[Rfam]
Nucleotides: 161
Base pairs, nucleotide, nucleotide: 005069006068008064009063010062011061012060013059020052021051022050023049024048025047027046029044078156079155081153082152083151084150087142088141089140090139091138098131099130100129101128102127103126144149
Number, partner (000 for none) and nucleotide at each position: 001000a002000c003000a004000u005069g006068u007000u008064u009063u010062g011061u012060c013059c014000a015000u016000u017000u018000u019000c020052g021051g022050a023049c024048g025047a026000c027046a028000u029044a030000c031000u032000a033000g034000a035000c036000g037000a038000u039000g040000a041000c042000g043000a044029u045000u046027u047025u048024u049023g050022u051021c052020c053000a054000u055000u056000a057000u058000c059013g060012g061011a062010c063009g064008a065000c066000a067000u068006a069005c070000u071000a072000a073000a074000c075000g076000a077000u078156g079155a080000u081153g082152u083151g084150u085000u086000u087142u088141g089140u090139c091138c092000a093000u094000u095000a096000u097000c098131g099130g100129a101128c102127g103126a104000c105000a106000u107000g108000c109000u110000a111000a112000a113000g114000u115000a116000u117000g118000a119000c120000g121000u122000u123000u124000u125000u126103u127102u128101g129100u130099c131098c132000a133000u134000u135000a136000u137000c138091g139090g140089a141088c142087g143000a144149c145000a146000u147000a148000u149144g150084a151083c152082g153081u154000u155079u156078c157000u158000u159000g160000u161000c

The record is a 161-nucleotide RNA sequence from Acanthochromis polyacanthus, which matches "Glm Y RNA activator of glmS mRNA" in Rfam. Taxonomically the source falls in Acanthochromis (Eukaryota, Metazoa, Bilateria, Chordata). Its Rfam clan is "Glm clan". The family's consensus secondary structure is taken from published work. This family consists of a number of bacterial RNA genes of around 167 bases in length. The tke1 RNA gene is present in Escherichia coli, Shigella flexneri, Yersinia pestis and Salmonella species where it is found between the yfhK and purL genes. The function of this RNA is unknown.